[Rfam]
RNA sequence: UGUCGGUUCUCUCGCAACGAUACGCUGUAAACCCCGCCAGGCCCGGAAGGGAGCAACGGUAGCAGCAGAUUCGUGUGCCGGGAUGUGGCUGGCGCAG
Numbered sequence: 001u002g003u004c005g006g007u008u009c010u011c012u013c014g015c016a017a018c019g020a021u022a023c024g025c026u027g028u029a030a031a032c033c034c035c036g037c038c039a040g041g042c043c044c045g046g047a048a049g050g051g052a053g054c055a056a057c058g059g060u061a062g063c064a065g066c067a068g069a070u071u072c073g074u075g076u077g078c079c080g081g082g083a084u085g086u087g088g089c090u091g092g093c094g095c096a097g
Stems, first nucleotide, its partner, number of pairs: 004091005010083005015075001017074004024066005034059003042051003
The family of this 97-nucleotide RNA from Methylomonas sp. is "Bacterial small signal recognition particle RNA". Rfam describes the family as follows. The signal recognition particle (SRP) is a universally conserved ribonucleoprotein involved in the co-translational targeting of proteins to membranes. Taxonomically the source falls in Methylomonas (Bacteria, Pseudomonadota, Gammaproteobacteria, Methylococcaceae).